[Rfam]
RNA sequence: CCUCUGGAGAGAGCUACGAGCCACCCAAGGGGAAUACUUCGGCCAAGACAAGUUCAGUAUGCUAGUCUGGCGGAAGUUAAACUCUCAGGUAAAAAGGACAGAGG
Numbered sequence: 001c002c003u004c005u006g007g008a009g010a011g012a013g014c015u016a017c018g019a020g021c022c023a024c025c026c027a028a029g030g031g032g033a034a035u036a037c038u039u040c041g042g043c044c045a046a047g048a049c050a051a052g053u054u055c056a057g058u059a060u061g062c063u064a065g066u067c068u069g070g071c072g073g074a075a076g077u078u079a080a081a082c083u084c085u086c087a088g089g090u091a092a093a094a095a096g097g098a099c100a101g102a103g104g
Base pairs, nucleotide, nucleotide: 001104002103003102004101005100006099013021014020015019023090024089025088027085030084031083032082036077037076038075039074040073
The record is a 104-nucleotide RNA from Brevibacillus fluminis, which matches "Glycine riboswitch aptamer" in Rfam.
NCBI's taxonomy places the organism under Bacteria, Bacillati, Bacillota, Caryophanales, Brevibacillus.